[Rfam]
RNA sequence: GCCACAUAUAAAUAGUGCAUAUAAAUAGUAGCAUAUAAAUAUUAAUAUGCGGCUACUAUUUAUAUGCUACUAUUUAUAUGCACUAUUUAUAUGUGGC
Numbered sequence: 001g002c003c004a005c006a007u008a009u010a011a012a013u014a015g016u017g018c019a020u021a022u023a024a025a026u027a028g029u030a031g032c033a034u035a036u037a038a039a040u041a042u043u044a045a046u047a048u049g050c051g052g053c054u055a056c057u058a059u060u061u062a063u064a065u066g067c068u069a070c071u072a073u074u075u076a077u078a079u080g081c082a083c084u085a086u087u088u089a090u091a092u093g094u095g096g097c
Stems, first nucleotide, its partner, number of pairs: 001097003005093003010090001011087008022076001024074017